The record is a 76-nucleotide RNA from Salarias fasciatus, which matches "mir-1788 microRNA precursor family" in Rfam.
The match comes from Rfam's covariance-model search (80 bits).
Its family is annotated with miRNA-mediated post-transcriptional gene silencing and RISC complex in the Gene Ontology.
Taxonomically the source falls in Salarias (Eukaryota, Chordata, Neopterygii, Ovalentaria).
The family's consensus secondary structure was predicted with RNAalifold.
[Rfam]
RNA sequence: UGGCUCUCCAGGCUUGUUUUAAGUUGCCUGCGACUUUUACAUGGACACAGGCAGCUAAAGCAAGCCUGGGACGCCA
Numbered sequence: 001u002g003g004c005u006c007u008c009c010a011g012g013c014u015u016g017u018u019u020u021a022a023g024u025u026g027c028c029u030g031c032g033a034c035u036u037u038u039a040c041a042u043g044g045a046c047a048c049a050g051g052c053a054g055c056u057a058a059a060g061c062a063a064g065c066c067u068g069g070g071a072c073g074c075c076a
Stems, first nucleotide, its partner, number of pairs: 003074002007070002010067011022056009032046001